Rfam assigns this 61-nucleotide RNA to the family "Glutamine riboswitch aptamer (glnA leader)".
Gene Ontology term of the family: glutamine binding.
Rfam's curators put it in the seed alignment.
[Rfam]
RNA sequence: AUCGUUCAAUUCUCAUAAAUAUUUGAGAAUCGGAAGUAGGUUUAUACCGAAGGAACGCGGA
Numbered sequence: 001a002u003c004g005u006u007c008a009a010u011u012c013u014c015a016u017a018a019a020u021a022u023u024u025g026a027g028a029a030u031c032g033g034a035a036g037u038a039g040g041u042u043u044a045u046a047c048c049g050a051a052g053g054a055a056c057g058c059g060g061a
Stems, first nucleotide, its partner, number of pairs: 003057005009030007033058001039048003